[Rfam]
RNA sequence: CCUUCCGAGAGGUGCUGCAGCGGGUUUGAACGCCCCCGUCAGGCUCGGAGCAGUGAUUUCGUUUCAACGGCACCUAUUCAUU
Number, nucleotide and partner (000 for none) at each position: 001c000002c000003u050004u049005c048006c047007g046008a045009g000010a000011g000012g000013u000014g000015c000016u000017g000018c000019a000020g000021c038022g037023g036024g035025u000026u000027u000028g000029a000030a000031c000032g000033c000034c000035c024036c023037c022038g021039u000040c000041a000042g000043g000044c000045u008046c007047g006048g005049a004050g003051c000052a000053g000054u000055g000056a000057u000058u000059u000060c000061g000062u000063u000064u000065c000066a000067a000068c000069g000070g000071c000072a000073c000074c000075u000076a000077u000078u000079c000080a000081u000082u000

Record summary
The family of this 82-nucleotide RNA sequence from Gallionella capsiferriformans is "SAH (S-adenosyl-L-homocysteine) riboswitch aptamer". The organism belongs to Gallionella capsiferriformans, within Bacteria.